[Rfam]
RNA sequence: UAACUUAUAAACACAUGCUUUCAUAUAUCCUCGAUAAUAUGGUUCGAAAGUUUCUACCGGGGUACCGAUAAUACCCUGACUAUGAAGGCGGAAUUCUAGAUA
Number, nucleotide and partner (000 for none) at each position: 001u000002a000003a000004c000005u000006u000007a000008u000009a000010a000011a000012c000013a000014c000015a000016u000017g000018c088019u087020u086021u085022c084023a083024u082025a081026u000027a000028u000029c000030c000031u047032c046033g045034a044035u000036a000037a000038u000039a000040u000041g000042g000043u000044u034045c033046g032047a031048a000049a000050g000051u000052u000053u000054c000055u000056a000057c000058c078059g077060g076061g075062g074063u073064a072065c000066c000067g000068a000069u000070a000071a000072u064073a063074c062075c061076c060077u059078g058079a000080c000081u025082a024083u023084g022085a021086a020087g019088g018089c000090g000091g000092a000093a000094u000095u000096c000097u000098a000099g000100a000101u000102a000

About this RNA:
Rfam assigns this 102-nucleotide RNA sequence from Ornithinibacillus hominis to the family "Purine riboswitch aptamer". NCBI's taxonomy places the organism under Bacteria, Bacillati, Bacillota, Bacilli, Ornithinibacillus. Gene Ontology term of the family: purine nucleobase biosynthetic process. About the family: Riboswitches are metabolite binding domains within certain messenger RNAs that serve as precision sensors for their corresponding targets. The family's consensus secondary structure is taken from published work.